The family of this 45-nucleotide sequence from Candidatus Epulonipiscium fishelsonii is "PreQ1 (pre queuosine) riboswitch aptamer". About the family: This family is a bacterial riboswitch that binds to the metabolite preQ1, an intermediate in the biosynthesis of the modified nucleoside queuosine from GTP. One example of this riboswitch is located in the leader of the Bacillus subtilis ykvJKLM (queCDEF) operon which encodes four genes necessary for queuosine production. The base pairs follow the family's consensus structure.

[Rfam]
RNA sequence: CUAACACUGGUUCGAGAGCCUCCCAGAAAAAAAAACUAAGGUAUU
Numbered sequence: 001c002u003a004a005c006a007c008u009g010g011u012u013c014g015a016g017a018g019c020c021u022c023c024c025a026g027a028a029a030a031a032a033a034a035a036c037u038a039a040g041g042u043a044u045u
Base pairs, nucleotide, nucleotide: 007026008025009024010023016037